[Rfam]
RNA sequence: GUUUAUCUUCGAGUUUUGUGCUUUGCACAAAACAUCGUUUAUUGUAUGCAGCUUUGCAAUUUGCAAAAUUGCAUACAAAAUUUUUUUUCACAAAUUGAUAUUUGCUGUAAAAAGUUUUUAUAGGA
Numbered sequence: 001g002u003u004u005a006u007c008u009u010c011g012a013g014u015u016u017u018g019u020g021c022u023u024u025g026c027a028c029a030a031a032a033c034a035u036c037g038u039u040u041a042u043u044g045u046a047u048g049c050a051g052c053u054u055u056g057c058a059a060u061u062u063g064c065a066a067a068a069u070u071g072c073a074u075a076c077a078a079a080a081u082u083u084u085u086u087u088u089c090a091c092a093a094a095u096u097g098a099u100a101u102u103u104g105c106u107g108u109a110a111a112a113a114g115u116u117u118u119u120a121u122a123g124g125a
Base pairs, nucleotide, nucleotide: 011036012035013033014032015031016030017029018028019027020026048072049071050070051069053067054066055065056064057063077119078118079117080116082114083113084112085111086110087109091104092103093102094101095100
RNA: TD-1 RNA